[Rfam]
RNA sequence: UUUGAUUUGUUUACCCUGUAGAUCGAGCUGUGUGUGCUUUUUUGAAAUAUUGCCCACAAGCUAGACCACAUGGUGAAUGAAUUUGAGA
Numbered sequence: 001u002u003u004g005a006u007u008u009g010u011u012u013a014c015c016c017u018g019u020a021g022a023u024c025g026a027g028c029u030g031u032g033u034g035u036g037c038u039u040u041u042u043u044g045a046a047a048u049a050u051u052g053c054c055c056a057c058a059a060g061c062u063a064g065a066c067c068a069c070a071u072g073g074u075g076a077a078u079g080a081a082u083u084u085g086a087g088a
Base pairs, nucleotide, nucleotide: 012075013074014073015072018069019068021066023065024064026062027061028060029059031058032057033056034055

The record is an 88-nucleotide sequence from Caenorhabditis angaria, which matches "mir-57 microRNA precursor family" in Rfam. The literature on the family includes a 2019 paper in Nucleic Acids Res by Kozomara et al., "miRBase: from microRNA sequences to function". The match comes from Rfam's covariance-model search (57 bits). The source organism's lineage runs through Eukaryota, Metazoa, Protostomia, Rhabditina and Caenorhabditis.